This 79-nucleotide RNA sequence from Vicugna pacos belongs to the Rfam family "mir-19 microRNA precursor family".
A reference for the family is Mourelatos et al. (2002), "miRNPs: a novel class of ribonucleoproteins containing numerous microRNAs", Genes Dev.
Its family is annotated with RISC complex and miRNA-mediated post-transcriptional gene silencing in the Gene Ontology.
The match comes from Rfam's covariance-model search (71 bits).
The family is grouped with related families in Rfam's "mir-19 clan".
[Rfam]
RNA sequence: UCCUACGGUUAGUUUUGCAGGUUUGCCUCCAGCUGUGUGAUAUUCUGCUGUGCAAAUCCAGGCAACACUGACUGUGGUA
Numbered sequence: 001u002c003c004u005a006c007g008g009u010u011a012g013u014u015u016u017g018c019a020g021g022u023u024u025g026c027c028u029c030c031a032g033c034u035g036u037g038u039g040a041u042a043u044u045c046u047g048c049u050g051u052g053c054a055a056a057u058c059c060a061g062g063c064a065a066c067a068c069u070g071a072c073u074g075u076g077g078u079a
Stems, first nucleotide, its partner, number of pairs: 003077011015065004020059002022056005028050001031049003